[Rfam]
RNA sequence: GUGUCGUUGAGAUAUGUUUGAUAUUCUUGGUUGUAUCUUUGCAUCACCCAGGAAUCAAACAUAUUACACAUCGAUGC
Numbered sequence: 001g002u003g004u005c006g007u008u009g010a011g012a013u014a015u016g017u018u019u020g021a022u023a024u025u026c027u028u029g030g031u032u033g034u035a036u037c038u039u040u041g042c043a044u045c046a047c048c049c050a051g052g053a054a055u056c057a058a059a060c061a062u063a064u065u066a067c068a069c070a071u072c073g074a075u076g077c
Base pairs, nucleotide, nucleotide: 005073006072008070009069011065012064013063014062015061016060017059018058019057020056021055022054024052025051029049030048032046033045
Notes
mir-190 microRNA precursor family: a 77-nucleotide RNA sequence from Spodoptera littoralis. Pairs were carried over by alignment from the consensus structure, which was predicted with RNAalifold. A search with the family's covariance model found it, with a score of 64 bits. Taxonomically the source falls in Spodoptera (Eukaryota, Protostomia, Pancrustacea, Amphiesmenoptera). The family is grouped with related families in Rfam's "mir-50 clan".